[Rfam]
RNA sequence: GUUGUUCACUCUCCCUCAAGGGCUUCUCAAAUUUGCCCUAGCUAGCCCAUGCAUCUAAAAAAGAAAAAACCAUUUUCGAUCAGCUGGGGGUUAGUUGCGAGAAGCUCUUGCAGGGAGAGUGAACAA
Numbered sequence: 001g002u003u004g005u006u007c008a009c010u011c012u013c014c015c016u017c018a019a020g021g022g023c024u025u026c027u028c029a030a031a032u033u034u035g036c037c038c039u040a041g042c043u044a045g046c047c048c049a050u051g052c053a054u055c056u057a058a059a060a061a062a063g064a065a066a067a068a069a070c071c072a073u074u075u076u077c078g079a080u081c082a083g084c085u086g087g088g089g090g091u092u093a094g095u096u097g098c099g100a101g102a103a104g105c106u107c108u109u110g111c112a113g114g115g116a117g118a119g120u121g122a123a124c125a126a
Stems, first nucleotide, its partner, number of pairs: 006122010017110012
The family of this 126-nucleotide sequence from Hevea brasiliensis is "MIR473 microRNA precursor family".
On this family, see Pantaleo et al., Plant J 2010: "Identification of grapevine microRNAs and their targets using high-throughput sequencing and degradome analysis".
The source organism's lineage runs through Eukaryota, Tracheophyta, Euphyllophyta, Euphorbiaceae and Hevea.